The family of this 32-nucleotide sequence from Orthonyx spaldingii is "L31-Firmicutes ribosomal protein leader". Rfam classes the family as a cis-regulatory leader. The family is grouped with related families in Rfam's "Ribosomal Protein L31 Leader clan". The literature on the family includes a 2020 paper in BMC Microbiol by Eckert and Weinberg, "Discovery of 20 novel ribosomal leader candidates in bacteria and archaea".
[Rfam]
RNA sequence: CUAUGCCUGGAAUAAAGGCAUGGCAAAAGGAG
Numbered sequence: 001c002u003a004u005g006c007c008u009g010g011a012a013u014a015a016a017g018g019c020a021u022g023g024c025a026a027a028a029g030g031a032g
Base pairs, nucleotide, nucleotide: 001023002022003021004020005019006018007017008016